Shown here is a 77-nucleotide sequence from Chrysemys picta, a member of the family "mir-1421 microRNA precursor family".
RNA sequence: CAGUAUGGGCUGGUCAGGGAAGGUGCAGUCCUUAAAGAUCCAAGCGUCAUGCACCUUCCCUGACCAGCCCAUACUGA
Numbered sequence: 001c002a003g004u005a006u007g008g009g010c011u012g013g014u015c016a017g018g019g020a021a022g023g024u025g026c027a028g029u030c031c032u033u034a035a036a037g038a039u040c041c042a043a044g045c046g047u048c049a050u051g052c053a054c055c056u057u058c059c060c061u062g063a064c065c066a067g068c069c070c071a072u073a074c075u076g077a
Stems, first nucleotide, its partner, number of pairs: 003074005009068013023054005

A search with the family's covariance model found it, with a score of 48 bits.